[Rfam]
RNA sequence: UACAAAUCAGGGAAUGGAGCCUCCCUUGUAACCGCGCUGAUGCUGAUGGCCCCUGAUGAUCG
Numbered sequence: 001u002a003c004a005a006a007u008c009a010g011g012g013a014a015u016g017g018a019g020c021c022u023c024c025c026u027u028g029u030a031a032c033c034g035c036g037c038u039g040a041u042g043c044u045g046a047u048g049g050c051c052c053c054u055g056a057u058g059a060u061c062g
Stems, first nucleotide, its partner, number of pairs: 010025004016053002019050003034043003
Dot-bracket structure: .........((((..[[.[[[))))........(((....)))....]]].]].........

Annotation:
The record is a 62-nucleotide RNA sequence from Sphingomonas sp. Leaf20, which matches "Fluoride riboswitch aptamer (crcB RNA motif)" in Rfam. Rfam links the family to the GO terms positive regulation of gene expression and response to fluoride.